[Rfam]
RNA: PyrR binding site
RNA sequence: AGCACCUUUUAAGAAAAGUCCAGAGAGGCUUGGAAGGGUGAAACACCGCUUGCUGUAGCGCUGUUUUGUCAUACCCUUUCCGCCUAACGGAGAGGGUAUUUUUUAU
Numbered sequence: 001a002g003c004a005c006c007u008u009u010u011a012a013g014a015a016a017a018g019u020c021c022a023g024a025g026a027g028g029c030u031u032g033g034a035a036g037g038g039u040g041a042a043a044c045a046c047c048g049c050u051u052g053c054u055g056u057a058g059c060g061c062u063g064u065u066u067u068g069u070c071a072u073a074c075c076c077u078u079u080c081c082g083c084c085u086a087a088c089g090g091a092g093a094g095g096g097u098a099u100u101u102u103u104u105a106u
Stems, first nucleotide, its partner, number of pairs: 005037005016031005041066005047060003071099012